[Rfam]
RNA sequence: GCUUGAUAAUGGCAAACCUACCGAAAGGUAGCGGCGCAAAACUACUGGCCUAACCUCCAUACAAACGGAGCACGGUCGCAGGGUCGCCAAG
Number, nucleotide and partner (000 for none) at each position: 001g000002c000003u000004u000005g000006a000007u000008a000009a000010u000011g000012g037013c036014a000015a000016a000017c000018c031019u030020a029021c028022c027023g000024a000025a000026a000027g022028g021029u020030a019031g018032c000033g000034g000035c000036g013037c012038a000039a000040a000041a084042c083043u082044a000045c081046u080047g079048g076049c075050c074051u000052a000053a000054c000055c070056u069057c068058c067059a000060u000061a000062c000063a000064a000065a000066c000067g058068g057069a056070g055071c000072a000073c000074g050075g049076u048077c000078g000079c047080a046081g045082g043083g042084u041085c000086g000087c000088c000089a000090a000091g000

Shown here is a 91-nucleotide RNA from Candidatus Competibacter denitrificans, a member of the family "c-di-GMP-I riboswitch aptamer". GEMM was predicted in a large-scale screen for bacterial structured RNA regulatory elements. The match comes from Rfam's covariance-model search (67 bits).